[Rfam]
RNA: Bacterial RNase P class A
Organism: Sphingomonas sp. ID1715
RNA sequence: CCAGAGGGUCGGGCGGCCGCGUCGCAUGCAAGUGCGCCGAGGAAAGUCCGGGCUCCACGGAACGACGGUGCCGGGUAACGCCCGGCGGAGGCGACUCCAGGGAAAGUGCCACAGAAAGCAGACCGCCUUCGGCUUCGGCCGGGCAAGGGCGAAAGGGUGGGGUAAGAGCCCACCGCGGGCCCGGCAACGGGAACGGCACGGCAAACCCCACCGGGAGCAAGACCGAAUAGGGAUGGCAAAUGGGCCUGUUCCGGCUCGUCAUCCGGGUUGGUUGCUGGAGACCGUCAGCAAUGAUGGUCCAAGAGGAAUGGCCGCACAUCGUCCAACAGGGCGAGGACAGAACCCGGCUUACAGACCCUCUGGCGCU
Numbered sequence: 001c002c003a004g005a006g007g008g009u010c011g012g013g014c015g016g017c018c019g020c021g022u023c024g025c026a027u028g029c030a031a032g033u034g035c036g037c038c039g040a041g042g043a044a045a046g047u048c049c050g051g052g053c054u055c056c057a058c059g060g061a062a063c064g065a066c067g068g069u070g071c072c073g074g075g076u077a078a079c080g081c082c083c084g085g086c087g088g089a090g091g092c093g094a095c096u097c098c099a100g101g102g103a104a105a106g107u108g109c110c111a112c113a114g115a116a117a118g119c120a121g122a123c124c125g126c127c128u129u130c131g132g133c134u135u136c137g138g139c140c141g142g143g144c145a146a147g148g149g150c151g152a153a154a155g156g157g158u159g160g161g162g163u164a165a166g167a168g169c170c171c172a173c174c175g176c177g178g179g180c181c182c183g184g185c186a187a188c189g190g191g192a193a194c195g196g197c198a199c200g201g202c203a204a205a206c207c208c209c210a211c212c213g214g215g216a217g218c219a220a221g222a223c224c225g226a227a228u229a230g231g232g233a234u235g236g237c238a239a240a241u242g243g244g245c246c247u248g249u250u251c252c253g254g255c256u257c258g259u260c261a262u263c264c265g266g267g268u269u270g271g272u273u274g275c276u277g278g279a280g281a282c283c284g285u286c287a288g289c290a291a292u293g294a295u296g297g298u299c300c301a302a303g304a305g306g307a308a309u310g311g312c313c314g315c316a317c318a319u320c321g322u323c324c325a326a327c328a329g330g331g332c333g334a335g336g337a338c339a340g341a342a343c344c345c346g347g348c349u350u351a352c353a354g355a356c357c358c359u360c361u362g363g364c365g366c367u
Base pairs, nucleotide, nucleotide: 001363002362003361004360005359006358007357008356009355010354011352013315014314015313016312017311018310020039021038023036024035025034026033027032044350045349046348048347049346050345051344052343053217054216055215056214062250066213067212068211069210070209071085072084073083074082075081086100087098088097089096090095101208102207106206107205108202109201110200123148124147125144126143127142130141131140132139133138156174157173158172159171160170161169175197176195177194180191181190182189183188221273222272223271224270231264232263233262234261235260236259242257243256244255245254246253280299281298282297283296284295285294286293287292